The record is a 120-nucleotide sequence from Keratinibaculum paraultunense, which matches "FMN riboswitch aptamer (RFN element)" in Rfam. The organism belongs to Keratinibaculum, within Bacteria. The RFN element is a highly conserved domain that is found frequently in the 5'-untranslated regions of prokaryotic mRNAs that encode for flavin mononucleotide (FMN) biosynthesis and transport proteins. This element is a metabolite-dependent riboswitch that directly binds FMN in the absence of proteins. In Bacillus subtilis, the riboswitch most likely controls gene expression by causing premature transcription termination within the 5' untranslated region of the ribDEAHT operon and precluding access to the ribosome-binding site of ypaA mRNA.The FMN riboswitch structure, reported in present an FMN-bound six-stem junction, adopts a butterfly-like scaffold, stapled together by opposingly directed but nearly identically folded peripheral domains.
RNA sequence: AAACAUCUUCAGGGCGAGGUGCAAUUCCUCACCGGCGGUAUAGCCCGCGAGCUGGUAAAUCCAGUUGACUUGGUGCAAUUCCAAGGCCGACAGUGAAAGUCUGGAUGGGAGAAGAUUAUA
Numbered sequence: 001a002a003a004c005a006u007c008u009u010c011a012g013g014g015c016g017a018g019g020u021g022c023a024a025u026u027c028c029u030c031a032c033c034g035g036c037g038g039u040a041u042a043g044c045c046c047g048c049g050a051g052c053u054g055g056u057a058a059a060u061c062c063a064g065u066u067g068a069c070u071u072g073g074u075g076c077a078a079u080u081c082c083a084a085g086g087c088c089g090a091c092a093g094u095g096a097a098a099g100u101c102u103g104g105a106u107g108g109g110a111g112a113a114g115a116u117u118a119u120a
Base pairs, nucleotide, nucleotide: 005116006115007114008113009112010111017029018028019027031100032099033089034088035048036047037046038045043087044086051065052064053063069085070084071083072082073081091103092102093101